RNA sequence: GGCUUUCUUCGCGGCGGAGCUCGACCGCCCCUCAAGACGAUGAUCGCCUUCAUCGACCAGCACAAGGACGAAUACGGGGUCGAGCCGAUCUGCAGGCAACUGCCGAUCGCCCCC
Numbered sequence: 001g002g003c004u005u006u007c008u009u010c011g012c013g014g015c016g017g018a019g020c021u022c023g024a025c026c027g028c029c030c031c032u033c034a035a036g037a038c039g040a041u042g043a044u045c046g047c048c049u050u051c052a053u054c055g056a057c058c059a060g061c062a063c064a065a066g067g068a069c070g071a072a073u074a075c076g077g078g079g080u081c082g083a084g085c086c087g088a089u090c091u092g093c094a095g096g097c098a099a100c101u102g103c104c105g106a107u108c109g110c111c112c113c114c
Stems, first nucleotide, its partner, number of pairs: 013029005076113004086109002089106002092103004